[Rfam]
The record is a 74-nucleotide sequence from Alligator mississippiensis, which matches "Mammalian CPEB3 ribozyme" in Rfam. A search with the family's covariance model found it, with a score of 43 bits. The base pairs follow the family's consensus structure, which is taken from published work. On this family, see Salehi-Ashtiani et al., Science 2006: "A genomewide search for ribozymes reveals an HDV-like sequence in the human CPEB3 gene".
RNA sequence: UUAGUUUUACUGACUCCUGCAGGAGUGUUCACGUUGCAGCCCCUGUCAGGUUUUUUGAAUCUGCAAAUCCUGCU
Numbered sequence: 001u002u003a004g005u006u007u008u009a010c011u012g013a014c015u016c017c018u019g020c021a022g023g024a025g026u027g028u029u030c031a032c033g034u035u036g037c038a039g040c041c042c043c044u045g046u047c048a049g050g051u052u053u054u055u056u057g058a059a060u061c062u063g064c065a066a067a068u069c070c071u072g073c074u
Base pairs, nucleotide, nucleotide: 014039015038019073020072021071022070023069024068025037026036027035047063048062049061050060051059052058053057